[Rfam]
RNA sequence: GGCCUCUCUCUGUGGGGCAAUUGAUCGUGAGGCUCCGUGAUGGAUUGCCACGCAGAGGGAGGCC
Numbered sequence: 001g002g003c004c005u006c007u008c009u010c011u012g013u014g015g016g017g018c019a020a021u022u023g024a025u026c027g028u029g030a031g032g033c034u035c036c037g038u039g040a041u042g043g044a045u046u047g048c049c050a051c052g053c054a055g056a057g058g059g060a061g062g063c064c
Stems, first nucleotide, its partner, number of pairs: 001064014016049007024041006

mir-9242 microRNA precursor family: a 64-nucleotide RNA from Myotis brandtii. Rfam 15.1 lists 940 matches to the family in 18 species. The match comes from Rfam's covariance-model search (62 bits). Pairs were carried over by alignment from the consensus structure, which was predicted with RNAalifold. Taxonomically the source falls in Myotis (Eukaryota, Bilateria, Theria, Eutheria).